About this RNA:
This 381-nucleotide sequence from Yersinia mollaretii belongs to the Rfam family "transfer-messenger RNA". The family is grouped with related families in Rfam's "tRNA clan". The organism belongs to Yersinia mollaretii, within Bacteria.

[Rfam]
RNA sequence: GGGGCUGAUUCUGGAUUCGACGGGAUUUGCGAAACCCAAGGUGCAUGCCGAGGUGCGGAGGCCUCGUAAAAAACCGCAAAAAAAAUAAUUGCAAACGACUCGCAAUACGAAUCUGCUGCUUUAGCAGCUUAAUCAGCCUAAGAAACUGAAGAUUCCCUCUCUCCCUAGCCUCCGCUCUUAGGACGGGGAUCAAGAGAGGUCAAACCUAAAAGAGAUCGCGUGGACACCUUGCCUGGGGUGAAAGCGUUAAACCCAAUCAGGAUAGUUUGUUAGUGGCGUGUCCGUCCGCAGCUAACCGGCGAAUGUAAUGACUGGACUAAGCAUGUAGUGCCGACGGCGUAGUAAUUUCGGACGGGGGUUCAAAUCCCCCCAGCUCCACCA
Number, nucleotide and partner (000 for none) at each position: 001g377002g376003g375004g374005c373006u372007g371008a000009u000010u000011c000012u000013g000014g000015a000016u000017u000018c000019g000020a000021c350022g349023g348024g347025a346026u345027u344028u000029g000030c000031g000032a000033a000034a000035c337036c336037c000038a000039a000040g332041g331042u330043g000044c325045a324046u323047g322048c321049c066050g065051a064052g063053g062054u078055g077056c076057g075058g074059a000060g000061g000062c053063c052064u051065c050066g049067u000068a000069a000070a000071a000072a000073a000074c058075c057076g056077c055078a054079a000080a000081a000082a000083a000084a000085a000086u000087a000088a000089u000090u000091g000092c000093a000094a000095a000096c000097g000098a000099c000100u000101c000102g000103c000104a000105a000106u000107a000108c000109g000110a000111a000112u000113c000114u000115g000116c000117u000118g000119c000120u145121u144122u143123a000124g000125c000126a139127g138128c000129u000130u000131a000132a000133u000134c000135a000136g000137c000138c127139u126140a000141a000142g000143a122144a121145a120146c000147u000148g000149a000150a000151g000152a000153u000154u000155c000156c199157c198158u197159c196160u195161c194162u000163c188164c187165c186166u185167a000168g000169c182170c181171u180172c000173c000174g000175c214176u213177c212178u211179u210180a171181g170182g169183a000184c000185g166186g165187g164188g163189a000190u000191c000192a000193a000194g161195a160196g159197a158198g157199g156200u000201c000202a000203a000204a000205c000206c000207u000208a000209a000210a179211a178212g177213a176214g175215a000216u000217c000218g000219c246220g245221u244222g000223g000224a000225c000226a000227c000228c000229u000230u000231g000232c261233c260234u259235g258236g000237g000238g000239u000240g000241a000242a000243a000244g221245c220246g219247u000248u000249a000250a000251a000252c000253c000254c000255a000256a000257u000258c235259a234260g233261g232262a000263u000264a000265g300266u299267u298268u000269g296270u295271u294272a293273g292274u000275g000276g289277c288278g287279u000280g317281u316282c315283c314284g312285u311286c310287c278288g277289c276290a000291g000292c273293u272294a271295a270296c269297c000298g267299g266300c265301g000302a000303a000304u000305g000306u000307a000308a000309u000310g286311a285312c284313u000314g283315g282316a281317c280318u000319a000320a000321g048322c047323a046324u045325g044326u000327a000328g000329u000330g042331c041332c040333g000334a000335c000336g036337g035338c000339g000340u000341a000342g000343u000344a027345a026346u025347u024348u023349c022350g021351g000352a000353c000354g370355g369356g368357g367358g366359u000360u000361c000362a000363a000364a000365u000366c358367c357368c356369c355370c354371c007372a006373g005374c004375u003376c002377c001378a000379c000380c000381a000